[Rfam]
RNA sequence: AGAAGCCCUCCGUGGCUGGGGGGGGAUGCUUGCCUCAUCACCGCGGUGACAAAGCAAGCAUUCCACCAGGCCGCUCAUGCUGCCCGC
Numbered sequence: 001a002g003a004a005g006c007c008c009u010c011c012g013u014g015g016c017u018g019g020g021g022g023g024g025g026a027u028g029c030u031u032g033c034c035u036c037a038u039c040a041c042c043g044c045g046g047u048g049a050c051a052a053a054g055c056a057a058g059c060a061u062u063c064c065a066c067c068a069g070g071c072c073g074c075u076c077a078u079g080c081u082g083c084c085c086g087c
Stems, first nucleotide, its partner, number of pairs: 005083002012074006020067002023064011038049004
RNA: mir-9195 microRNA precursor family